Rfam assigns this 73-nucleotide RNA from Alligator sinensis to the family "Mammalian CPEB3 ribozyme". The family's consensus secondary structure is taken from published work. Its family is annotated with RNA nuclease activity in the Gene Ontology. A search with the family's covariance model found it, with a score of 36 bits.

RNA sequence: AAAGGUUCCAGGCCGUAACAGAAGUGCUCACAAUGCAGCCAUGUCAGAUGCCAACAAAUCUGUGAAUUCUGAU
Numbered sequence: 001a002a003a004g005g006u007u008c009c010a011g012g013c014c015g016u017a018a019c020a021g022a023a024g025u026g027c028u029c030a031c032a033a034u035g036c037a038g039c040c041a042u043g044u045c046a047g048a049u050g051c052c053a054a055c056a057a058a059u060c061u062g063u064g065a066a067u068u069c070u071g072a073u
Base pairs, nucleotide, nucleotide: 011040012039013038017073019071020070021069022068023067024036025035026034045062046061047060048059049058